[Rfam]
Nucleotides: 115
Stems, first nucleotide, its partner, number of pairs: 003069006021057004
Number, partner (000 for none) and nucleotide at each position: 001000u002000u003069u004068u005067c006066c007065g008064a009000g010000g011000a012000g013000c014000g015000u016000u017000g018000c019000a020000g021057c022056u023055c024054g025000a026000u027000a028000u029000c030000c031000u032000g033000g034000c035000c036000a037000g038000a039000a040000a041000c042000c043000g044000g045000c046000a047000g048000g049000g050000g051000a052000c053000g054024c055023g056022a057021g058000u059000g060000a061000g062000g063000c064008u065007c066006g067005g068004a069003g070000c071000a072000c073000g074000c075000g076000g077000c078000c079000c080000u081000g082000a083000u084000g085000g086000g087000g088000c089000u090000g091000c092000g093000a094000c095000a096000g097000u098000c099000a100000a101000c102000g103000g104000c105000g106000c107000u108000c109000a110000c111000c112000c113000a114000c115000u
SAH (S-adenosyl-L-homocysteine) riboswitch aptamer: a 115-nucleotide RNA sequence from Rhodoferax ferrireducens. Pairs were carried over by alignment from the consensus structure, which is taken from published work. Lineage of the source: Bacteria > Pseudomonadati > Pseudomonadota > Rhodoferax > Rhodoferax ferrireducens. A search with the family's covariance model found it, with a score of 48 bits.